[Rfam]
Description
Shown here is a 132-nucleotide RNA from Myotis lucifugus, a member of the family "Small nucleolar RNA SNORA71". A reference for the family is Ganot et al. (1997), "The family of box ACA small nucleolar RNAs is defined by an evolutionarily conserved secondary structure and ubiquitous sequence elements essential for RNA accumulation", Genes Dev. The family has 40 seed sequences and 1,805 matches in Rfam 15.1.

RNA sequence: UCCUGCAUUCGAAAGUGAUCGUGGGCUGCUGUGCCCUGGUCAUUGAUAGUGCAGGGAGAGGAUUGCUGAAAGGAGUUUUCCCCGUGUUUGAAGGGUCCAGCUGUCCCUUCCAAACCCUGGAACUUUCACACA
Numbered sequence: 001u002c003c004u005g006c007a008u009u010c011g012a013a014a015g016u017g018a019u020c021g022u023g024g025g026c027u028g029c030u031g032u033g034c035c036c037u038g039g040u041c042a043u044u045g046a047u048a049g050u051g052c053a054g055g056g057a058g059a060g061g062a063u064u065g066c067u068g069a070a071a072g073g074a075g076u077u078u079u080c081c082c083c084g085u086g087u088u089u090g091a092a093g094g095g096u097c098c099a100g101c102u103g104u105c106c107c108u109u110c111c112a113a114a115c116c117c118u119g120g121a122a123c124u125u126u127c128a129c130a131c132a
Stems, first nucleotide, its partner, number of pairs: 001056009014044008023036004065129001067128006086115005091109005

Source information: The source organism's lineage runs through Eukaryota, Eumetazoa, Vertebrata, Amniota and Myotis. The family's consensus secondary structure was predicted with PFOLD.